[Rfam]
RNA: Small nucleolar RNA SNORA38
RNA sequence: UCCUCCUGCAAAGGUGUGUUUUUGGUUCUCUGGUCUUGGCUGUGUAAGAAUUGGGGUCAAAAAAAUAUGGAUCUGGUGAGGUCUGGGGAUAGCUUGCCCCACACAGGCUCAAGAUCAAUCAUUCCACAUAG
Numbered sequence: 001u002c003c004u005c006c007u008g009c010a011a012a013g014g015u016g017u018g019u020u021u022u023u024g025g026u027u028c029u030c031u032g033g034u035c036u037u038g039g040c041u042g043u044g045u046a047a048g049a050a051u052u053g054g055g056g057u058c059a060a061a062a063a064a065a066u067a068u069g070g071a072u073c074u075g076g077u078g079a080g081g082u083c084u085g086g087g088g089a090u091a092g093c094u095u096g097c098c099c100c101a102c103a104c105a106g107g108c109u110c111a112a113g114a115u116c117a118a119u120c121a122u123u124c125c126a127c128a129u130a131g
Stems, first nucleotide, its partner, number of pairs: 003056004015044004020039002024030002069124003091109006